The record is a 60-nucleotide RNA from Canis lupus, which matches "mir-290 microRNA precursor family" in Rfam.
It is one of the family's seed sequences.
Gene Ontology terms of the family: RISC complex and miRNA-mediated post-transcriptional gene silencing.
[Rfam]
RNA sequence: ACUCAAAAAAUGGCGGCACUUUCCUACCUAGAACAGAAAGUGCCCCCACAGUUUGAGUGG
Numbered sequence: 001a002c003u004c005a006a007a008a009a010a011u012g013g014c015g016g017c018a019c020u021u022u023c024c025u026a027c028c029u030a031g032a033a034c035a036g037a038a039a040g041u042g043c044c045c046c047c048a049c050a051g052u053u054u055g056a057g058u059g060g
Base pairs, nucleotide, nucleotide: 001058002057003056004055005054006053007052011048012047013046015044016043017042018041019040020039021038022037023036

The literature on the family includes a 2003 paper in Dev Cell by Houbaviy et al., "Embryonic stem cell-specific MicroRNAs". Taxonomically the source falls in Canis lupus (Eukaryota, Metazoa, Euteleostomi, Laurasiatheria). The family has 31 seed sequences and 565 matches in Rfam 15.1.